[Rfam]
RNA sequence: CUUGACUAUGAUGACCCACUUGCCCUAUCUGAGAGCAGAUCUGUUAUGAGACAAUCUUAAAUCCUCAUUUUCCUGAGUCAGG
Numbered sequence: 001c002u003u004g005a006c007u008a009u010g011a012u013g014a015c016c017c018a019c020u021u022g023c024c025c026u027a028u029c030u031g032a033g034a035g036c037a038g039a040u041c042u043g044u045u046a047u048g049a050g051a052c053a054a055u056c057u058u059a060a061a062u063c064c065u066c067a068u069u070u071u072c073c074u075g076a077g078u079c080a081g082g
Stems, first nucleotide, its partner, number of pairs: 001082006
Notes: Shown here is an 82-nucleotide sequence from Electrophorus electricus, a member of the family "Small nucleolar RNA SNORD103/SNORD85". By type it is a C/D-box small nucleolar RNA. A search with the family's covariance model found it, with a score of 56 bits. The pairing is the family consensus, mapped onto this sequence. Taxonomically the source falls in Electrophorus (Eukaryota, Actinopterygii, Neopterygii, Ostariophysi). Rfam links the family to the GO terms nucleolus and RNA processing.